[Rfam]
RNA: Small nucleolar RNA Z266
RNA sequence: AACUGGCAAGAAUGAUGAUUCAAUUAGAUGUGUGAAGAAUUCAAUUCCUCAUGAACAUAAAAUAUUUGAGGCAUAAUUAUUUCUGACUUGCCAAGUU
Numbered sequence: 001a002a003c004u005g006g007c008a009a010g011a012a013u014g015a016u017g018a019u020u021c022a023a024u025u026a027g028a029u030g031u032g033u034g035a036a037g038a039a040u041u042c043a044a045u046u047c048c049u050c051a052u053g054a055a056c057a058u059a060a061a062a063u064a065u066u067u068g069a070g071g072c073a074u075a076a077u078u079a080u081u082u083c084u085g086a087c088u089u090g091c092c093a094a095g096u097u
Stems, first nucleotide, its partner, number of pairs: 001097003004093007